[Rfam]
Overview: The record is a 97-nucleotide RNA from Kineococcus radiotolerans, which matches "Bacterial small signal recognition particle RNA" in Rfam. From the family's description: The signal recognition particle (SRP) is a universally conserved ribonucleoprotein involved in the co-translational targeting of proteins to membranes. The base pairs follow the family's consensus structure, which is taken from published work.
RNA sequence: UCAGACCCCUCGUGCGGCGUCAUCCCGCUGAACCCCCCCAGGGCCGGAAGGCAGCAAGGGUAGGUGGGCCCUGGCGGGUGUGCGGGGGGUCCCUCGU
Numbered sequence: 001u002c003a004g005a006c007c008c009c010u011c012g013u014g015c016g017g018c019g020u021c022a023u024c025c026c027g028c029u030g031a032a033c034c035c036c037c038c039c040a041g042g043g044c045c046g047g048a049a050g051g052c053a054g055c056a057a058g059g060g061u062a063g064g065u066g067g068g069c070c071c072u073g074g075c076g077g078g079u080g081u082g083c084g085g086g087g088g089g090u091c092c093c094u095c096g097u
Stems, first nucleotide, its partner, number of pairs: 004091011015078001018076005024068006035060003043052003